A member of the RNA family "Small nucleolar RNA U54" from Apostasia shenzhenica, 82 nucleotides long. Pairs were carried over by alignment from the consensus structure, which was predicted with PFOLD. Rfam's curators write: U54 is a C/D box small nucleolar RNA, which acts as a methylation guide for 18S ribosomal RNA in plants. The literature on the family includes a 2003 paper in Nucleic Acids Res by Chen et al., "The high diversity of snoRNAs in plants: identification and comparative study of 120 snoRNA genes from Oryza sativa". The source organism's lineage runs through Eukaryota, Tracheophyta, Magnoliopsida, Orchidaceae and Apostasia. The match comes from Rfam's covariance-model search (69 bits).
[Rfam]
RNA sequence: AGCUCAAUGAUUGCACUCAUUUUUUGUUUGGAUAUAUACGCUAUUCUGAUGUUUUCUGCUGACGGUUAAGAAUAUGAGAGCU
Numbered sequence: 001a002g003c004u005c006a007a008u009g010a011u012u013g014c015a016c017u018c019a020u021u022u023u024u025u026g027u028u029u030g031g032a033u034a035u036a037u038a039c040g041c042u043a044u045u046c047u048g049a050u051g052u053u054u055u056c057u058g059c060u061g062a063c064g065g066u067u068a069a070g071a072a073u074a075u076g077a078g079a080g081c082u
Stems, first nucleotide, its partner, number of pairs: 001082005